[Rfam]
RNA: RT-14 RNA
RNA sequence: CUCUAAUACAAUUUCUAGAUUACAUAUUUUACGGAAUAUAUACAAUGAAGGUAUUAGUAUUAAAGAGAUUUAUCCCAUCCUAAUUCAGGUAAACAUGAAUCAGUAAAACAUAUGUUAGUACAAAAUUGGAAUACAUGUGUUUUAC
Number, nucleotide and partner (000 for none) at each position: 001c000002u000003c057004u056005a055006a054007u053008a052009c051010a000011a000012u000013u000014u048015c047016u000017a000018g000019a000020u000021u042022a041023c000024a039025u038026a037027u036028u035029u034030u000031a000032c000033g000034g029035a028036a027037u026038a025039u024040a000041u022042a021043c000044a000045a000046u000047g015048a014049a000050g000051g009052u008053a007054u006055u005056a004057g003058u000059a000060u000061u000062a000063a000064a000065g000066a000067g000068a000069u000070u000071u000072a000073u000074c000075c000076c000077a000078u000079c089080c088081u087082a000083a000084u000085u000086c000087a081088g080089g079090u000091a000092a000093a000094c000095a000096u000097g000098a000099a000100u000101c000102a000103g145104u144105a143106a142107a141108a140109c139110a138111u137112a136113u135114g134115u133116u000117a000118g000119u000120a000121c128122a127123a000124a000125a000126u000127u122128g121129g000130a000131a000132u000133a115134c114135a113136u112137g111138u110139g109140u108141u107142u106143u105144a104145c103